[Rfam]
A member of the RNA family "tRNA" from Metamycoplasma canadense, 71 nucleotides long.
RNA sequence: GCGAGUGUAGUUUAAUGGUAGAACUUUAGCCUUCCAAGCUAACUACGUGGGUUCGAUUCCCAUCACUUGCA
Numbered sequence: 001g002c003g004a005g006u007g008u009a010g011u012u013u014a015a016u017g018g019u020a021g022a023a024c025u026u027u028a029g030c031c032u033u034c035c036a037a038g039c040u041a042a043c044u045a046c047g048u049g050g051g052u053u054c055g056a057u058u059c060c061c062a063u064c065a066c067u068u069g070c071a
Stems, first nucleotide, its partner, number of pairs: 001070007010024004026042005047063005
It scores 72 bits against the family's covariance model. Lineage of the source: Bacteria > Bacillati > Mycoplasmoidales > Metamycoplasmataceae > Metamycoplasma. It is annotated as a transfer RNA.